[Rfam]
RNA sequence: UGGUAGAUGCACCCUGAUAAACUUUCCCAGCCUCAUCAAGGUUGGGAUUUUUUUU
Numbered sequence: 001u002g003g004u005a006g007a008u009g010c011a012c013c014c015u016g017a018u019a020a021a022c023u024u025u026c027c028c029a030g031c032c033u034c035a036u037c038a039a040g041g042u043u044g045g046g047a048u049u050u051u052u053u054u055u
Base pairs, nucleotide, nucleotide: 002013003012004011025047026046027045028044029043030042031041032040033039
Record summary:
The record is a 55-nucleotide sequence from Microcoleus sp. FACHB-68, which matches "Nitrogen stress-induced RNA 1" in Rfam. It scores 58 bits against the family's covariance model. Lineage of the source: Bacteria > Cyanobacteriota > Cyanophyceae > Microcoleaceae > Microcoleus. It is annotated as a small RNA.